[Rfam]
RNA: Potassium channel RNA editing signal
Organism: Microcaecilia unicolor
RNA sequence: CUAGGUAUGGUGAUAUGGUACCAAAGACAAUAGCCGGGAAGAUAUUUGGUUCAAUCUGUUCCCUCAGCGGUGUUUUAGUCAUCGCCUUGCCAGUCCCUGUAAUUGUCUCCAAC
Numbered sequence: 001c002u003a004g005g006u007a008u009g010g011u012g013a014u015a016u017g018g019u020a021c022c023a024a025a026g027a028c029a030a031u032a033g034c035c036g037g038g039a040a041g042a043u044a045u046u047u048g049g050u051u052c053a054a055u056c057u058g059u060u061c062c063c064u065c066a067g068c069g070g071u072g073u074u075u076u077a078g079u080c081a082u083c084g085c086c087u088u089g090c091c092a093g094u095c096c097c098u099g100u101a102a103u104u105g106u107c108u109c110c111a112a113c
Stems, first nucleotide, its partner, number of pairs: 002112001004110002007106004013100003017096002020094002036076004048062002